[Rfam]
RNA sequence: GGAGCAGUAACGAUGUUACGCAGCUGGGCAGUCGCCCGAAAACAAAGUUAUGCGGCACUCAUC
Numbered sequence: 001g002g003a004g005c006a007g008u009a010a011c012g013a014u015g016u017u018a019c020g021c022a023g024c025u026g027g028g029c030a031g032u033c034g035c036c037c038g039a040a041a042a043c044a045a046a047g048u049u050a051u052g053c054g055g056c057a058c059u060c061a062u063c
Stems, first nucleotide, its partner, number of pairs: 006017001008015002020056002023053002026037004039049002
RNA: putative aminoglycoside riboswitch / attI site